[Rfam]
Background:
A member of the RNA family "Small nucleolar RNA SNORD60" from Aquarana catesbeiana, 81 nucleotides long. It scores 47 bits against the family's covariance model. Clan: SNORD60 clan. Gene Ontology terms of the family: nucleolus and RNA processing. The family has 22 seed sequences and 825 matches in Rfam 15.1. The source organism's lineage runs through Eukaryota, Chordata, Neobatrachia, Ranoidea and Aquarana.
RNA sequence: UGCCCAUGAUGUACCCUAAAUUCUGACACCUCAUAUGAAACUGUUAAACAGCUUCAUGAUUCUCUUAUUGGGCUGAGGCAG
Numbered sequence: 001u002g003c004c005c006a007u008g009a010u011g012u013a014c015c016c017u018a019a020a021u022u023c024u025g026a027c028a029c030c031u032c033a034u035a036u037g038a039a040a041c042u043g044u045u046a047a048a049c050a051g052c053u054u055c056a057u058g059a060u061u062c063u064c065u066u067a068u069u070g071g072g073c074u075g076a077g078g079c080a081g
Base pairs, nucleotide, nucleotide: 001080002079003078004077041051042050043049044048